Description: Rfam assigns this 105-nucleotide RNA sequence from Clostridium paridis to the family "azaaromatic riboswitch aptamer (yjdF RNA)". Lineage of the source: Bacteria > Bacillota > Eubacteriales > Clostridiaceae > Clostridium. The base pairs follow the family's consensus structure, which is taken from published work. It scores 84 bits against the family's covariance model.
Nucleotides: 105
Base pairs, nucleotide, nucleotide: 004097007094008093009092010091011090022041023040024039025038026037027036042060043059044058046056047055070082071081072080073079
Number, partner (000 for none) and nucleotide at each position: 001000g002000u003000u004097u005000u006000a007094a008093g009092a010091g011090a012000u013000a014000a015000a016000a017000a018000c019000a020000c021000g022041a023040u024039u025038c026037g027036g028000u029000u030000g031000g032000u033000a034000g035000u036027c037026c038025g039024g040023a041022u042060g043059c044058a045000u046056a047055g048000a049000u050000a051000a052000u053000a054000a055047c056046u057000u058044u059043g060042u061000a062000a063000g064000u065000a066000a067000c068000c069000u070082g071081c072080c073079c074000u075000c076000c077000u078000g079073g080072g081071g082070u083000u084000g085000u086000c087000c088000g089000u090011u091010c092009u093008c094007u095000g096000u097004a098000g099000u100000u101000a102000u103000a104000u105000a